Notes
The family of this 187-nucleotide RNA sequence is "malK-I RNA". It is one of the family's seed sequences.
RNA sequence: AAAUACGGUGCCGGACGACUCUACAUUCUUCGUUCGGCAAUCGUAAAAAAAGGAGGCAAUAAUUAACCCGUAUCGGUUCGCGGUGCAGCAGUGUGGAGACCUGUUGUAAUACCUUCGCCACAUAUGCGGGCGCGGGUGAGCUGCGCAGUUAGCGGAUGCUGUGCGCGGCAGAGCCGGAGAUAUGGCA
Numbered sequence: 001a002a003a004u005a006c007g008g009u010g011c012c013g014g015a016c017g018a019c020u021c022u023a024c025a026u027u028c029u030u031c032g033u034u035c036g037g038c039a040a041u042c043g044u045a046a047a048a049a050a051a052g053g054a055g056g057c058a059a060u061a062a063u064u065a066a067c068c069c070g071u072a073u074c075g076g077u078u079c080g081c082g083g084u085g086c087a088g089c090a091g092u093g094u095g096g097a098g099a100c101c102u103g104u105u106g107u108a109a110u111a112c113c114u115u116c117g118c119c120a121c122a123u124a125u126g127c128g129g130g131c132g133c134g135g136g137u138g139a140g141c142u143g144c145g146c147a148g149u150u151a152g153c154g155g156a157u158g159c160u161g162u163g164c165g166c167g168g169c170a171g172a173g174c175c176g177g178a179g180a181u182a183u184g185g186c187a
Stems, first nucleotide, its partner, number of pairs: 007041001009039010068083004073177007084108008093100002111137004116132004140169008151160003
Dot-bracket structure: ......(.((((((((((...........)))))))))).)..........................[[[[.(((((((]]]]((((((((.((....))))))))))..((((.((((.........)))).))))..((((((((...(((....))).)))))))).)))))))..........